[Rfam]
RNA sequence: UUCUGCGCUGGAGAUGGCAUUCCUCCAUGAACCGCGGCACCUGAAUGGGUGACGCUGAUGAUGCCUACGGUUUC
Number, nucleotide and partner (000 for none) at each position: 001u000002u000003c000004u000005g000006c000007g000008c000009u000010g026011g025012a024013g023014a000015u000016g065017g064018c063019a062020u061021u060022c000023c013024u012025c011026c010027a000028u000029g000030a000031a000032c000033c000034g055035c054036g053037g000038c000039a000040c000041c000042u000043g000044a000045a000046u000047g000048g000049g000050u000051g000052a000053c036054g035055c034056u000057g000058a000059u000060g021061a020062u019063g018064c017065c016066u000067a000068c000069g000070g000071u000072u000073u000074c000
Description: This 74-nucleotide RNA sequence from Variovorax sp. Sphag1AA belongs to the Rfam family "Fluoride riboswitch aptamer (crcB RNA motif)". Gene Ontology terms of the family: response to fluoride and positive regulation of gene expression. It scores 47 bits against the family's covariance model.